[Rfam]
RNA sequence: UUCUUCGGUAGAGGGAACGCCCUUCUCCCAUGGCGAAUUCCCUCCUGCAAGUGCGACGCGGGGGCAAAAAAAAGUAGACGAGUCGAGAUAUCGUUUCGAUCGCCACUCCCCCCGUUGGCGAUUCGAUUGUUGCUCGACCACAU
Numbered sequence: 001u002u003c004u005u006c007g008g009u010a011g012a013g014g015g016a017a018c019g020c021c022c023u024u025c026u027c028c029c030a031u032g033g034c035g036a037a038u039u040c041c042c043u044c045c046u047g048c049a050a051g052u053g054c055g056a057c058g059c060g061g062g063g064g065c066a067a068a069a070a071a072a073a074g075u076a077g078a079c080g081a082g083u084c085g086a087g088a089u090a091u092c093g094u095u096u097c098g099a100u101c102g103c104c105a106c107u108c109c110c111c112c113c114g115u116u117g118g119c120g121a122u123u124c125g126a127u128u129g130u131u132g133c134u135c136g137a138c139c140a141c142a143u
Base pairs, nucleotide, nucleotide: 008048009047010046011045013042014041015040016039017038082138084136085135086134087133090127091126092125093124099122100121101120102119103118104117105116108114
Source information: Rfam assigns this 143-nucleotide RNA sequence from Zingiber officinale to the family "Small nucleolar RNA snoR111". Rfam links the family to the GO terms nucleolus and RNA processing. It scores 61 bits against the family's covariance model. The literature on the family includes a 2002 paper in Curr Biol by Marker et al., "Experimental RNomics: identification of 140 candidates for small non-messenger RNAs in the plant Arabidopsis thaliana".